[Rfam]
RNA sequence: ACCAAGCGGUGAUGAUGGCGACAUUUUGUCACUUUCCUGAUGGAGACUGAUGGUUUUAAGUCACUACCUCAUCUGAGCUUGCA
Numbered sequence: 001a002c003c004a005a006g007c008g009g010u011g012a013u014g015a016u017g018g019c020g021a022c023a024u025u026u027u028g029u030c031a032c033u034u035u036c037c038u039g040a041u042g043g044a045g046a047c048u049g050a051u052g053g054u055u056u057u058a059a060g061u062c063a064c065u066a067c068c069u070c071a072u073c074u075g076a077g078c079u080u081g082c083a
Stems, first nucleotide, its partner, number of pairs: 003081005
The family of this 83-nucleotide RNA from Neogobius melanostomus is "Small nucleolar RNA SNORD11B". Rfam links the family to the GO terms nucleolus and RNA processing. Rfam 15.1 lists 733 matches to the family in 632 species. Taxonomically the source falls in Neogobius (Eukaryota, Deuterostomia, Actinopteri, Gobiaria). By type it is a C/D-box small nucleolar RNA.